[Rfam]
RNA sequence: UGGACGGGACGACCCGGCCGCGAGGGAGCACAUGCCGGGACGACCCGG
Numbered sequence: 001u002g003g004a005c006g007g008g009a010c011g012a013c014c015c016g017g018c019c020g021c022g023a024g025g026g027a028g029c030a031c032a033u034g035c036c037g038g039g040a041c042g043a044c045c046c047g048g
Stems, first nucleotide, its partner, number of pairs: 001020003005016004035048005
RNA: Guanidine-II riboswitch aptamer (mini-ykkC)